[Rfam]
RNA sequence: UGCUCAAUGAUUCAACCAUGUUUAUCAUGGUAAUAUACGCUAUUCUGAGCCCUAUGAGGAUGCCAUAAGCUUUAUGAGAGCA
Numbered sequence: 001u002g003c004u005c006a007a008u009g010a011u012u013c014a015a016c017c018a019u020g021u022u023u024a025u026c027a028u029g030g031u032a033a034u035a036u037a038c039g040c041u042a043u044u045c046u047g048a049g050c051c052c053u054a055u056g057a058g059g060a061u062g063c064c065a066u067a068a069g070c071u072u073u074a075u076g077a078g079a080g081c082a
Stems, first nucleotide, its partner, number of pairs: 001082005
RNA: Small nucleolar RNA U54